The family of this 80-nucleotide sequence is "RT-18 RNA".
RNA sequence: CACCGCUUGGUGAAAAUAUUGCCGCAUAGGACGGGGUUUAGUAGGCUUCGGCUCGAAUAACCUCGCAGGCAAACAAGGAC
Numbered sequence: 001c002a003c004c005g006c007u008u009g010g011u012g013a014a015a016a017u018a019u020u021g022c023c024g025c026a027u028a029g030g031a032c033g034g035g036g037u038u039u040a041g042u043a044g045g046c047u048u049c050g051g052c053u054c055g056a057a058u059a060a061c062c063u064c065g066c067a068g069g070c071a072a073a074c075a076a077g078g079a080c
Stems, first nucleotide, its partner, number of pairs: 001012004020071004032065007044054002046051001
The family's consensus secondary structure is taken from published work.